[Rfam]
RNA sequence: CGGGAUAACCGGCGUUAGGGAAUUCGGCAAGUUAGUCCCGUACGUUCGCAAGAAGGGAUGCCUGCUCCGGAAUGGAGCAGGUUGCAAUAUCUCGGAAGCUCCGACUGUCUAAUAACAACACAGGUGACUGCAAAUCCGCAAGGACUCGUACAGUCACUGAAUCCUGCCCAGUGCGGGUAUCUGAACACCUCGUACAAGAGGACGAAGGACCCGUCAACGGCGGGGGUAACUAUGACCCUCUUAAGGUAGCGUAGUACCUUGUCGCUUCAGUAGCGACUUGCAUGAAUGGAUCAACGAGAGCUUCACUGUCCCAACGCUGGACCCGGUGAACUGUACGUUCCAGUGCGGAGUCUGGAGA
Numbered sequence: 001c002g003g004g005a006u007a008a009c010c011g012g013c014g015u016u017a018g019g020g021a022a023u024u025c026g027g028c029a030a031g032u033u034a035g036u037c038c039c040g041u042a043c044g045u046u047c048g049c050a051a052g053a054a055g056g057g058a059u060g061c062c063u064g065c066u067c068c069g070g071a072a073u074g075g076a077g078c079a080g081g082u083u084g085c086a087a088u089a090u091c092u093c094g095g096a097a098g099c100u101c102c103g104a105c106u107g108u109c110u111a112a113u114a115a116c117a118a119c120a121c122a123g124g125u126g127a128c129u130g131c132a133a134a135u136c137c138g139c140a141a142g143g144a145c146u147c148g149u150a151c152a153g154u155c156a157c158u159g160a161a162u163c164c165u166g167c168c169c170a171g172u173g174c175g176g177g178u179a180u181c182u183g184a185a186c187a188c189c190u191c192g193u194a195c196a197a198g199a200g201g202a203c204g205a206a207g208g209a210c211c212c213g214u215c216a217a218c219g220g221c222g223g224g225g226g227u228a229a230c231u232a233u234g235a236c237c238c239u240c241u242u243a244a245g246g247u248a249g250c251g252u253a254g255u256a257c258c259u260u261g262u263c264g265c266u267u268c269a270g271u272a273g274c275g276a277c278u279u280g281c282a283u284g285a286a287u288g289g290a291u292c293a294a295c296g297a298g299a300g301c302u303u304c305a306c307u308g309u310c311c312c313a314a315c316g317c318u319g320g321a322c323c324c325g326g327u328g329a330a331c332u333g334u335a336c337g338u339u340c341c342a343g344u345g346c347g348g349a350g351u352c353u354g355g356a357g358a
Stems, first nucleotide, its partner, number of pairs: 001325004009320008018311003035059005044049001060082009083087001095304007102296002106120003123158008131148001135144003161291004166221003171218002173214005180209003188201004222240006241245001261277006339356005
Dot-bracket structure: ((((....((((((((.(((..............(((((....(....).....)))))(((((((((.....)))))))))(...).......(((((((((..(((.........)))..(((((((((...(((....)))...)..))))))))..((((.(((..(((((((..(((.....((((......)))).....))))))))..)))))((((((.......))))))(...)...............((((((.....))))))..........))))...)).)))))))....))).)))))))).)))).............(((((........)))))..
A member of the RNA family "Archaeal large subunit ribosomal RNA" from Halohasta litchfieldiae, 358 nucleotides of a longer RNA. Pairs were carried over by alignment from the consensus structure, which is taken from published work.